Source information:
This 87-nucleotide RNA from Flavobacterium crassostreae belongs to the Rfam family "Flavo-1 RNA".

[Rfam]
Nucleotides: 087
Stems, first nucleotide, its partner, number of pairs: 017079003021075002026070002031065004037060008
Number, partner (000 for none) and nucleotide at each position: 001000u002000u003000u004000u005000g006000g007000c008000u009000u010000u011000g012000a013000a014000u015000g016000a017079g018078g019077g020000a021075u022074a023000g024000u025000a026070g027069c028000a029000g030000a031065a032064a033063u034062c035000c036000u037060u038059u039058u040057u041056g042055g043054a044053g045000u046000u047000u048000u049000u050000u051000u052000a053044c054043u055042c056041c057040a058039a059038a060037a061000a062034g063033a064032u065031u066000g067000g068000a069027g070026c071000g072000u073000a074022u075021a076000g077019c078018c079017c080000g081000a082000c083000c084000c085000g086000c087000u